[Rfam]
RNA sequence: UUUGGUUUCUUGCUUCCAUAAAGAGCAAGUGGUGCGGAUGGGACUCUCUCCCGCCUGGUUUCCAAUUUCCAGCCAAAGAAUUGGUGGCGAGCCUGAAU
Number, nucleotide and partner (000 for none) at each position: 001u000002u000003u000004g000005g000006u000007u000008u000009c029010u028011u027012g026013c025014u024015u000016c023017c000018a000019u000020a000021a000022a000023g016024a014025g013026c012027a011028a010029g009030u000031g000032g000033u000034g000035c000036g000037g000038a000039u053040g052041g051042g050043a049044c000045u000046c000047u000048c000049u043050c042051c041052c040053g039054c000055c072056u071057g070058g069059u000060u000061u000062c084063c083064a082065a081066u080067u079068u000069c058070c057071a056072g055073c000074c000075a000076a000077a000078g000079a067080a066081u065082u064083g063084g062085u000086g000087g000088c000089g000090a000091g000092c000093c000094u000095g000096a000097a000098u000
RNA: wcaG RNA